[Rfam]
RNA sequence: UACUGUUACAGCUCUUUUAGGAUUUAUCUAGCAGGUUUUCCGGUCCUCACCGGAAGGCCCCC
Numbered sequence: 001u002a003c004u005g006u007u008a009c010a011g012c013u014c015u016u017u018u019a020g021g022a023u024u025u026a027u028c029u030a031g032c033a034g035g036u037u038u039u040c041c042g043g044u045c046c047u048c049a050c051c052g053g054a055a056g057g058c059c060c061c062c
Stems, first nucleotide, its partner, number of pairs: 034059011
A member of the RNA family "U7 small nuclear RNA" from Microcebus murinus, 62 nucleotides long.
The family has 49 seed sequences and 10,439 matches in Rfam 15.1.
The base pairs follow the family's consensus structure, which was predicted with PFOLD.
Animal histone pre-mRNAs are spliced by a different mechanism than nuclear pre-mRNAs and self-splicing introns. This processing involves the U7 snRNP, which contains only one RNA species: U7. The 5' end of U7 RNA is thought to base-pair to a conserved spacer element downstream of the cleavage site in histone pre-mRNA. This family contains a number of annotated U7 pseudogenes.
The organism belongs to Microcebus, within Eukaryota.